[Rfam]
RNA sequence: AACACUUUUUUAAAAGCAGUCCUGUGAGGCUGACAAAGAGUGAUUAAUUUCUAUAGGGGAUUAUUCUAUACUCUUUGUCGACACAGACAAGGGGUAUUUUUUAU
Numbered sequence: 001a002a003c004a005c006u007u008u009u010u011u012a013a014a015a016g017c018a019g020u021c022c023u024g025u026g027a028g029g030c031u032g033a034c035a036a037a038g039a040g041u042g043a044u045u046a047a048u049u050u051c052u053a054u055a056g057g058g059g060a061u062u063a064u065u066c067u068a069u070a071c072u073c074u075u076u077g078u079c080g081a082c083a084c085a086g087a088c089a090a091g092g093g094g095u096a097u098u099u100u101u102u103a104u
Stems, first nucleotide, its partner, number of pairs: 003040001005038004017032005042065003046061001048059004068097012